[Rfam]
RNA: Bacteroidetes FopS (family of paralogous sRNAs)
RNA sequence: GUGUUUUUCAUGGUAUUAGAUUAUUAAGGUUAAUUUUGAAAUCGGCAUGCUCGUGAGAGUAUGCCGAUUUUCUAUCA
Numbered sequence: 001g002u003g004u005u006u007u008u009c010a011u012g013g014u015a016u017u018a019g020a021u022u023a024u025u026a027a028g029g030u031u032a033a034u035u036u037u038g039a040a041a042u043c044g045g046c047a048u049g050c051u052c053g054u055g056a057g058a059g060u061a062u063g064c065c066g067a068u069u070u071u072c073u074a075u076c077a
Stems, first nucleotide, its partner, number of pairs: 044065007